[Rfam]
MIR2619 microRNA precursor family: a 199-nucleotide RNA from Medicago truncatula.

RNA sequence: AAACAGCCCCCUAUGUAUUGGAUCUUUGGCAGUUUUGGCCCCCAAGACCACUUUUGACUUAGUCUUCGCUGACAUGGCACCCAUAUCCCUUAAGUGAGGUGCCACGUGUCAACCAUUGUGGGUGCCAGUCAAUGAAGACUAAGUCAAAAGUGGUCUUGGUGCCAAAACUGACAAAGAUCCAAUACAUAGGGGGCUGUUU
Numbered sequence: 001a002a003a004c005a006g007c008c009c010c011c012u013a014u015g016u017a018u019u020g021g022a023u024c025u026u027u028g029g030c031a032g033u034u035u036u037g038g039c040c041c042c043c044a045a046g047a048c049c050a051c052u053u054u055u056g057a058c059u060u061a062g063u064c065u066u067c068g069c070u071g072a073c074a075u076g077g078c079a080c081c082c083a084u085a086u087c088c089c090u091u092a093a094g095u096g097a098g099g100u101g102c103c104a105c106g107u108g109u110c111a112a113c114c115a116u117u118g119u120g121g122g123u124g125c126c127a128g129u130c131a132a133u134g135a136a137g138a139c140u141a142a143g144u145c146a147a148a149a150g151u152g153g154u155c156u157u158g159g160u161g162c163c164a165a166a167a168c169u170g171a172c173a174a175a176g177a178u179c180c181a182a183u184a185c186a187u188a189g190g191g192g193g194c195u196g197u198u199u
Base pairs, nucleotide, nucleotide: 001199002198004196005195006194007193008192012188013187014186015185016184017183018182019181020180021179022178023177024176025175026174027173028172030170031169032168033167034166035165036164037163038162039161042159043158044157045156072129073128075127076126077125078124079123080122081121082120
Taxonomically the source falls in Medicago (Eukaryota, Embryophyta, Magnoliopsida, Mesangiospermae).